[Rfam]
RNA sequence: CAGCACUUCAUUGGGGAGUAGCCGCUUUUUACGCAAAGUAAAAAGGUGAUGGUCAACAUAUUUGCUCAACAGGGCAUGGUCAUCAUAGCAAAGAACCAAAAUGCUUUUCUCAAGCUUUCUUUUGUUGGCAAGACCUUUGAUU
Numbered sequence: 001c002a003g004c005a006c007u008u009c010a011u012u013g014g015g016g017a018g019u020a021g022c023c024g025c026u027u028u029u030u031a032c033g034c035a036a037a038g039u040a041a042a043a044a045g046g047u048g049a050u051g052g053u054c055a056a057c058a059u060a061u062u063u064g065c066u067c068a069a070c071a072g073g074g075c076a077u078g079g080u081c082a083u084c085a086u087a088g089c090a091a092a093g094a095a096c097c098a099a100a101a102u103g104c105u106u107u108u109c110u111c112a113a114g115c116u117u118u119c120u121u122u123u124g125u126u127g128g129c130a131a132g133a134c135c136u137u138u139g140a141u142u
Stems, first nucleotide, its partner, number of pairs: 026044003046086010063076005087141001089139005
RNA: Manganese Mn2+ riboswitch aptamer (yybP-ykoY)
Organism: Acinetobacter indicus